[Rfam]
RNA sequence: AGGGCAGGGGGGUACCGCGUCCCACCGCGGGUCCUGUCCUUGAUCCGGUCGCGCGGCCCCGCGCGGCCGAUUGGUUGUCGCUCGGGGGUGAUCGCCC
Numbered sequence: 001a002g003g004g005c006a007g008g009g010g011g012g013u014a015c016c017g018c019g020u021c022c023c024a025c026c027g028c029g030g031g032u033c034c035u036g037u038c039c040u041u042g043a044u045c046c047g048g049u050c051g052c053g054c055g056g057c058c059c060c061g062c063g064c065g066g067c068c069g070a071u072u073g074g075u076u077g078u079c080g081c082u083c084g085g086g087g088g089u090g091a092u093c094g095c096c097c
Stems, first nucleotide, its partner, number of pairs: 001040008014032002016029004047068008
RNA: che1 RNA